[Rfam]
RNA sequence: GUUGGGAGGGCGACGAAUACAAUACCCUUCGGGGAAAUAAGUCCGCGGCGUUUAUCCUUAGGCCGUUUCGAACCUCCCAACACCAAUCU
Numbered sequence: 001g002u003u004g005g006g007a008g009g010g011c012g013a014c015g016a017a018u019a020c021a022a023u024a025c026c027c028u029u030c031g032g033g034g035a036a037a038u039a040a041g042u043c044c045g046c047g048g049c050g051u052u053u054a055u056c057c058u059u060a061g062g063c064c065g066u067u068u069c070g071a072a073c074c075u076c077c078c079a080a081c082a083c084c085a086a087u088c089u
Stems, first nucleotide, its partner, number of pairs: 001081009012043003016038001025034003045066005
RNA: sRNA-Xcc1
Organism: Vibrio cholerae